[Rfam]
RNA sequence: AUGAAGGUAGCAGGAGAGCGGCCAUUGACGAAUACUAUAACGGUAUACACGUCGGCCCGCCGAAGAAGUAAGCGAAGCUUAAUAUGAUCCCAUCAUAUUUUAAUUCGUAAAUCUUUCAGGCACCAGAUUGCAGAAAUGCA
Numbered sequence: 001a002u003g004a005a006g007g008u009a010g011c012a013g014g015a016g017a018g019c020g021g022c023c024a025u026u027g028a029c030g031a032a033u034a035c036u037a038u039a040a041c042g043g044u045a046u047a048c049a050c051g052u053c054g055g056c057c058c059g060c061c062g063a064a065g066a067a068g069u070a071a072g073c074g075a076a077g078c079u080u081a082a083u084a085u086g087a088u089c090c091c092a093u094c095a096u097a098u099u100u101u102a103a104u105u106c107g108u109a110a111a112u113c114u115u116u117c118a119g120g121c122a123c124c125a126g127a128u129u130g131c132a133g134a135a136a137u138g139c140a
Stems, first nucleotide, its partner, number of pairs: 008133001010131004020057004059121003062117002066115003072108005
Overview:
Rfam assigns this 140-nucleotide RNA from Photobacterium aquimaris to the family "Glycine riboswitch aptamer". Rfam links the family to the GO term glycine biosynthetic process. The family has 44 seed sequences and 9,425 matches in Rfam 15.1.